[Rfam]
RNA: Eukaryotic large subunit ribosomal RNA, nucleotides 980 to 1512
RNA sequence: CACAUCGAAGUUUCCCUCAGGAUAGCUGGUGCUUGUAUACAAGAAGUAUUGUGCGGUAAAGCAAAUGAUUAGAGGCAUUGGUGUUCUUAGAAUAUCGACCUAUUCUCAAACUUUAAAUGUGCAAACAAACCGCGUCUUACCCAAUCGGAAGACCGGAAAGAAAAGAAUUAAGGCACCAAGUGGGCCUUCUUCGGUAAGCGGAGCAGGCGAUGCGGAAUGAACCGCUUAGGGAUAUGUGGCGUCAAAACUUUUGGGCUCAUUCUCGAUACGUGAAAAGGGUGUUGGUGGAUACGGACAGUUGGACGGUGGCCAUGGAAGUCGGCAUCCGCUAAGGAGUGUGUAACAACUCACCAACCGAAUCCACCGGCCCCGAAAAUGGAUGACGCUUAAGCCCAAUUCGUGAUUGCCCAUUAUUCCUUUGGUAGGGGCGGAAAAACUUGGAGAAAGUGUAGCCCCUCCGAUGUAGAUGUGGCGUGGGGGUCAGGACGAAGCUUAUGGCGUGAGCCUAAGAUGGACCGGCCUCUAGUGCAGAU
Number, nucleotide and partner (000 for none) at each position: 001c471002a470003c469004a468005u467006c466007g000008a000009a000010g000011u024012u000013u022014c021015c020016c000017u000018c000019a000020g015021g014022a013023u000024a011025g000026c000027u178028g177029g176030u175031g174032c173033u172034u000035g000036u000037a000038u000039a000040c000041a000042a000043g000044a000045a000046g000047u127048a000049u124050u123051g122052u121053g120054c119055g000056g000057u000058a000059a114060a112061g111062c000063a000064a000065a000066u108067g107068a106069u000070u000071a103072g000073a101074g100075g099076c000077a000078u098079u097080g096081g095082u094083g093084u000085u091086c000087u000088u000089a000090g000091a085092a000093u083094a082095u081096c080097g079098a078099c075100c074101u073102a000103u071104u000105c000106u068107c067108a066109a000110a000111c061112u060113u000114u059115a000116a000117a000118u000119g054120u053121g052122c051123a050124a049125a000126c000127a047128a000129a000130c156131c155132g154133c000134g153135u152136c151137u150138u149139a000140c000141c000142c000143a000144a000145u000146c000147g000148g000149a138150a137151g136152a135153c134154c132155g131156g130157a000158a000159a000160g000161a000162a000163a000164a000165g000166a000167a000168u000169u000170a000171a000172g033173g032174c031175a030176c029177c028178a027179a000180g000181u000182g000183g000184g208185c207186c206187u205188u000189c203190u202191u201192c200193g199194g000195u000196a000197a000198g000199c193200g192201g191202a190203g189204c000205a187206g186207g185208c184209g000210a000211u000212g000213c224214g223215g222216a000217a000218u000219g000220a000221a000222c215223c214224g213225c000226u000227u000228a418229g417230g416231g415232a414233u000234a412235u000236g000237u000238g408239g407240c406241g000242u000243c000244a000245a000246a000247a405248c000249u000250u000251u000252u000253g000254g393255g392256c391257u000258c000259a000260u000261u000262c000263u000264c000265g000266a000267u000268a000269c000270g000271u000272g000273a000274a000275a000276a000277g371278g370279g369280u000281g368282u367283u366284g365285g364286u363287g362288g361289a360290u359291a000292c000293g000294g000295a000296c000297a000298g355299u354300u353301g352302g351303a000304c328305g327306g326307u000308g000309g323310c322311c321312a000313u000314g000315g000316a000317a000318g000319u000320c000321g311322g310323c309324a000325u000326c306327c305328g304329c333330u000331a000332a000333g329334g349335a000336g000337u000338g347339u346340g000341u000342a000343a000344c000345a000346a339347c338348u000349c334350a000351c302352c301353a300354a299355c298356c000357g000358a000359a290360u289361c288362c287363a286364c285365c284366g283367g282368c281369c279370c278371c277372g000373a000374a000375a000376a000377u000378g000379g000380a000381u000382g000383a000384c000385g000386c000387u000388u000389a000390a000391g256392c255393c254394c000395a000396a000397u000398u000399c000400g000401u000402g000403a000404u000405u247406g240407c239408c238409c000410a000411u000412u234413a000414u232415u231416c230417c229418u228419u461420u460421g459422g458423u000424a000425g455426g454427g453428g000429c000430g000431g000432a000433a000434a000435a000436a000437c000438u000439u000440g000441g000442a000443g000444a000445a000446a000447g000448u000449g000450u000451a000452g000453c427454c426455c425456c000457u000458c422459c421460g420461a419462u000463g000464u000465a000466g006467a005468u004469g003470u002471g001472g000473c528474g000475u525476g524477g523478g522479g521480g520481u519482c518483a000484g516485g000486a000487c000488g000489a000490a000491g512492c510493u000494u000495a000496u000497g506498g505499c504500g000501u000502g000503a000504g499505c498506c497507u000508a000509a000510g492511a000512u491513g000514g000515a000516c484517c000518g482519g481520c480521c479522u478523c477524u476525a475526g000527u000528g473529c000530a000531g000532a000533u000